RNA sequence: UGCGGGAUGGUGUAAUCGGCAACACGCCUCGCUCUGGACGAGGUAUUCUAGGUUCGAGUCCUAGUCCCGCAG
Numbered sequence: 001u002g003c004g005g006g007a008u009g010g011u012g013u014a015a016u017c018g019g020c021a022a023c024a025c026g027c028c029u030c031g032c033u034c035u036g037g038a039c040g041a042g043g044u045a046u047u048c049u050a051g052g053u054u055c056g057a058g059u060c061c062u063a064g065u066c067c068c069g070c071a072g
Base pairs, nucleotide, nucleotide: 001071002070003069004068005067006066007065010025011024012023013022027043028042029041030040031039048064049063050062051061052060